Shown here is a 48-nucleotide RNA from Roseivivax halotolerans, a member of the family "SAM/SAH riboswitch aptamer". Lineage of the source: Bacteria > Pseudomonadota > Rhodobacterales > Roseobacteraceae > Roseivivax. The base pairs follow the family's consensus structure, which is taken from published work. Gene Ontology terms of the family: regulation of gene expression and S-adenosylmethionine metabolic process. It scores 57 bits against the family's covariance model. The literature on the family includes a 2019 paper in Nucleic Acids Res by Weickhmann et al., "The structure of the SAM/SAH-binding riboswitch".
[Rfam]
RNA sequence: ACCCUGUCACAACGGCUUCCUGGCGUGGCAGCAGACCAUAAUGGAGCA
Numbered sequence: 001a002c003c004c005u006g007u008c009a010c011a012a013c014g015g016c017u018u019c020c021u022g023g024c025g026u027g028g029c030a031g032c033a034g035a036c037c038a039u040a041a042u043g044g045a046g047c048a
Stems, first nucleotide, its partner, number of pairs: 004031007013022002015047003019044002